[Rfam]
RNA sequence: GUCAACUACCUCCGGCUGAAGCCGGAGGCUUGUAACAACAAGCCCGGUUGACCAGGGAGGGCGGUAGCCAACCCGCUACGUUGGUAACAGGUCGCCAAGACCCACCCCGCCGUACUUCCUCAGCGGCGGGCUCUGGAAGGUCAGGAUCAUGCUGCGGUACGCCGCCAUGGGCGCAAGGUAAAACGCCGAAGGUUCUGACCGCUGCGGAAACGCAGGAGCCGGUUAUCGACAUUCCCGAGGGGAGAC
Numbered sequence: 001g002u003c004a005a006c007u008a009c010c011u012c013c014g015g016c017u018g019a020a021g022c023c024g025g026a027g028g029c030u031u032g033u034a035a036c037a038a039c040a041a042g043c044c045c046g047g048u049u050g051a052c053c054a055g056g057g058a059g060g061g062c063g064g065u066a067g068c069c070a071a072c073c074c075g076c077u078a079c080g081u082u083g084g085u086a087a088c089a090g091g092u093c094g095c096c097a098a099g100a101c102c103c104a105c106c107c108c109g110c111c112g113u114a115c116u117u118c119c120u121c122a123g124c125g126g127c128g129g130g131c132u133c134u135g136g137a138a139g140g141u142c143a144g145g146a147u148c149a150u151g152c153u154g155c156g157g158u159a160c161g162c163c164g165c166c167a168u169g170g171g172c173g174c175a176a177g178g179u180a181a182a183a184c185g186c187c188g189a190a191g192g193u194u195c196u197g198a199c200c201g202c203u204g205c206g207g208a209a210a211c212g213c214a215g216g217a218g219c220c221g222g223u224u225a226u227c228g229a230c231a232u233u234c235c236c237g238a239g240g241g242g243a244g245a246c
Base pairs, nucleotide, nucleotide: 001052002051003050004049005048006047007046010028011027012025013024015022016021029042030041031040032039055236056235057234058233059232060077061076062075063074064073080230081229082228083227084226085225086224087223088222090220102136103135106130107129108128109127110126111125112124113123116244117243118242119241120240121239139200140199141198142197143196144195145194146193147192
The record is a 246-nucleotide RNA from Vreelandella zhuhanensis, which matches "HNH endonuclease-associated RNA and ORF (HEARO) RNA" in Rfam. Pairs were carried over by alignment from the consensus structure, which is taken from published work. On this family, see Weinberg et al., Nature 2009: "Exceptional structured noncoding RNAs revealed by bacterial metagenome analysis".